[Rfam]
RNA sequence: GGAGUGGACCGGGCCCCUCUGGCAGCCGAUCGGCUGUGAUGUCGGACCACUCUG
Numbered sequence: 001g002g003a004g005u006g007g008a009c010c011g012g013g014c015c016c017c018u019c020u021g022g023c024a025g026c027c028g029a030u031c032g033g034c035u036g037u038g039a040u041g042u043c044g045g046a047c048c049a050c051u052c053u054g
Base pairs, nucleotide, nucleotide: 006048007047009045010044011043012042022037023036024035025034026033027032
The record is a 54-nucleotide RNA sequence from Falsigemmobacter intermedius, which matches "terC RNA" in Rfam. Rfam 15.1 lists 1,112 matches to the family in 772 species. Taxonomically the source falls in Falsigemmobacter (Bacteria, Pseudomonadota, Alphaproteobacteria, Rhodobacterales).